This 99-nucleotide RNA from Veronia nyctiphanis belongs to the Rfam family "Translational regulator of tfoXVC". A search with the family's covariance model found it, with a score of 80 bits. Rfam classes the family as a small RNA. On this family, see Yamamoto et al., J Bacteriol 2011: "Identification of a chitin-induced small RNA that regulates translation of the tfoX gene, encoding a positive regulator of natural competence in Vibrio cholerae".
Nucleotides: 099
Base pairs, nucleotide, nucleotide: 010032011031012030013029014028015027016026017025018024037045038044049063050062051061052060053059054058064089065088066087067086068085069084070083071082072081073080074079
Number, partner (000 for none) and nucleotide at each position: 001000a002000u003000u004000c005000c006000a007000g008000a009000u010032g011031g012030u013029g014028c015027g016026c017025g018024g019000c020000c021000c022000u023000c024018c025017c026016g027015c028014g029013u030012a031011c032010c033000u034000c035000c036000g037045g038044c039000a040000g041000c042000a043000a044038g045037c046000g047000a048000a049063g050062g051061u052060g053059u054058c055000c056000u057000u058054g059053a060052c061051g062050c063049c064089c065088g066087u067086g068085g069084u070083a071082u072081g073080g074079c075000g076000a077000a078000a079074g080073c081072u082071a083070u084069a085068c086067c087066a088065c089064g090000u091000u092000u093000u094000u095000u096000u097000u098000u099000a